[Rfam]
RNA sequence: GCCAGUGACACGGGGUGCCCAUCGGGCUGAGAUCACACCCGUCGAACCUGAUCUAGUUCGUACUAGCGAAGGGAUGUCGCACAUGUUGCGC
Numbered sequence: 001g002c003c004a005g006u007g008a009c010a011c012g013g014g015g016u017g018c019c020c021a022u023c024g025g026g027c028u029g030a031g032a033u034c035a036c037a038c039c040c041g042u043c044g045a046a047c048c049u050g051a052u053c054u055a056g057u058u059c060g061u062a063c064u065a066g067c068g069a070a071g072g073g074a075u076g077u078c079g080c081a082c083a084u085g086u087u088g089c090g091c
Stems, first nucleotide, its partner, number of pairs: 006079005011041004016035001017027004047072003053066004
The family of this 91-nucleotide RNA sequence from Leifsonia sp. AK011 is "TPP riboswitch aptamer (THI element)".
A search with the family's covariance model found it, with a score of 70 bits.
Pairs were carried over by alignment from the consensus structure, which is taken from published work.
Taxonomically the source falls in Leifsonia (Bacteria, Actinomycetes, Micrococcales, Microbacteriaceae).